The family of this 93-nucleotide sequence from Thiohalospira halophila is "t44 RNA". Lineage of the source: Bacteria > Pseudomonadota > Thiohalospirales > Thiohalospiraceae > Thiohalospira halophila. Pairs were carried over by alignment from the consensus structure, which was predicted with LocARNA.

RNA sequence: UUACCCGCCGGAUGAAUCCACACACGGACCCGCGCAACGCGCGUCGGGGUGCCCCGCAAGGGGUUCGGCGCGCGGGGUCCGUGGAGGCGCAAC
Dot-bracket structure: ......................((((((((.......(((((((((....(((((....))))).))))))))).))))))))..........
Numbered sequence: 001u002u003a004c005c006c007g008c009c010g011g012a013u014g015a016a017u018c019c020a021c022a023c024a025c026g027g028a029c030c031c032g033c034g035c036a037a038c039g040c041g042c043g044u045c046g047g048g049g050u051g052c053c054c055c056g057c058a059a060g061g062g063g064u065u066c067g068g069c070g071c072g073c074g075g076g077g078u079c080c081g082u083g084g085a086g087g088c089g090c091a092a093c
Stems, first nucleotide, its partner, number of pairs: 023083008038074009051064005